mir-460 microRNA precursor family: a 77-nucleotide RNA sequence from Chrysemys picta.
Taxonomically the source falls in Chrysemys picta (Eukaryota, Gnathostomata, Dipnotetrapodomorpha, Testudinoidea).
The family's consensus secondary structure was predicted with RNAalifold.
For this family Rfam cites "The developmental miRNA profiles of zebrafish as determined by small RNA cloning" (Chen et al., Genes Dev, 2005).
The family has 21 seed sequences and 1,029 matches in Rfam 15.1.
Gene Ontology terms of the family: miRNA-mediated post-transcriptional gene silencing and RISC complex.
[Rfam]
RNA sequence: CUUUAUAGAACCUGCAUUGUACACACUGUGUGUAUUGAUUGGACAUGCACAGCGCAUACAAUGUGGAUACUGUAGAC
Number, nucleotide and partner (000 for none) at each position: 001c000002u000003u000004u000005a000006u000007a000008g000009a000010a000011c000012c066013u065014g000015c063016a062017u061018u060019g059020u058021a057022c000023a000024c054025a000026c052027u051028g050029u049030g048031u047032g000033u000034a000035u000036u000037g000038a000039u000040u000041g000042g000043a000044c000045a000046u000047g031048c030049a029050c028051a027052g026053c000054g024055c000056a000057u021058a020059c019060a018061a017062u016063g015064u000065g013066g012067a000068u000069a000070c000071u000072g000073u000074a000075g000076a000077c000